[Rfam]
A member of the RNA family "Bacterial RNase P class A" from Qipengyuania oceanensis, 412 nucleotides long.
It is annotated as a ribozyme.
The match comes from Rfam's covariance-model search (284 bits).
Pairs were carried over by alignment from the consensus structure, which is taken from published work.
The source organism's lineage runs through Bacteria, Pseudomonadati, Sphingomonadales, Erythrobacteraceae and Qipengyuania.

RNA sequence: CCAGGGGGCCGGGCAGCCGCGGGUGCUUUGCACGCGAGGAAAGUCCGGGCUCCACGAAACAAGGGUGGCGGGUAACGCCCGCCCGGCGAGGUCUUCGGGCCGAAGCCGAGGGAAAGUGCCACAGAGAGUAUACCGCCGAUGGCGCCUAAAGCGCACAGGCAAGGGUGAAAGGGUGCGGCAAGAGCGCACCGGGGGGCUGGCAACAGCUCCCGCAUGGCAAACCCCACCCGGAGCAAGGCCGAAUAGGGGCGGCGCGCCAGCUUGCUGGCAGAUACGUUUCGUAUCGACCGCCCGGGUUGGCUGCUGGAGCCGUGGAGCGAUCCACGGCCUAGAUGAAUGGCUGCCCCCGCGGCGCUGAUGUGCGAGCAUAUCGGCCGCGGGACAGAACCCGGCUUACAGGCCCCCUGGCACU
Numbered sequence: 001c002c003a004g005g006g007g008g009c010c011g012g013g014c015a016g017c018c019g020c021g022g023g024u025g026c027u028u029u030g031c032a033c034g035c036g037a038g039g040a041a042a043g044u045c046c047g048g049g050c051u052c053c054a055c056g057a058a059a060c061a062a063g064g065g066u067g068g069c070g071g072g073u074a075a076c077g078c079c080c081g082c083c084c085g086g087c088g089a090g091g092u093c094u095u096c097g098g099g100c101c102g103a104a105g106c107c108g109a110g111g112g113a114a115a116g117u118g119c120c121a122c123a124g125a126g127a128g129u130a131u132a133c134c135g136c137c138g139a140u141g142g143c144g145c146c147u148a149a150a151g152c153g154c155a156c157a158g159g160c161a162a163g164g165g166u167g168a169a170a171g172g173g174u175g176c177g178g179c180a181a182g183a184g185c186g187c188a189c190c191g192g193g194g195g196g197c198u199g200g201c202a203a204c205a206g207c208u209c210c211c212g213c214a215u216g217g218c219a220a221a222c223c224c225c226a227c228c229c230g231g232a233g234c235a236a237g238g239c240c241g242a243a244u245a246g247g248g249g250c251g252g253c254g255c256g257c258c259a260g261c262u263u264g265c266u267g268g269c270a271g272a273u274a275c276g277u278u279u280c281g282u283a284u285c286g287a288c289c290g291c292c293c294g295g296g297u298u299g300g301c302u303g304c305u306g307g308a309g310c311c312g313u314g315g316a317g318c319g320a321u322c323c324a325c326g327g328c329c330u331a332g333a334u335g336a337a338u339g340g341c342u343g344c345c346c347c348c349g350c351g352g353c354g355c356u357g358a359u360g361u362g363c364g365a366g367c368a369u370a371u372c373g374g375c376c377g378c379g380g381g382a383c384a385g386a387a388c389c390c391g392g393c394u395u396a397c398a399g400g401c402c403c404c405c406u407g408g409c410a411c412u
Stems, first nucleotide, its partner, number of pairs: 001408010011397001012345007020036002023033004041395003045392005050233004059279001061277001063229005068082005083110001084108004111224002116222002118218003133164002135160003140157002142154004172190006191213001192211008237302004247293006271285005309328008